A member of the RNA family "tRNA", 75 nucleotides long.
Rfam classes the family as a transfer RNA.
Transfer RNA (tRNA) molecules are approximately 80 nucleotides in length.
The family's consensus secondary structure is taken from published work.
Rfam's curators put it in the seed alignment.
RNA sequence: GCUAGCGUGGCAGAGCCUGGCUAAUGCGAAAGACCUAAGCUCUUUUUAUCAGGGGUUCAAAUCCCCUCGCUAACU
Dot-bracket structure: (.(((((..(((............))).(((((.......))))).....(((((.......)))))))))).).